A member of the RNA family "RNA anti-toxin A" from Enterococcus pallens, 90 nucleotides long. Rfam classes the family as an antitoxin RNA. The literature on the family includes a 2010 paper in Nucleic Acids Res by Fozo et al., "Abundance of type I toxin-antitoxin systems in bacteria: searches for new candidates and discovery of novel families". The family's consensus secondary structure was predicted with RNAalifold.
RNA sequence: UAAUAUACACGAAAAGGGAAGUUGCGUGAACAACCUCCCUUUUAGGACAGUACCGUUUAAGACGGCAACCUGGAUAAUUAUUAGAAGAAA
Dot-bracket structure: ....................((((......))))..................(((((...))))).........................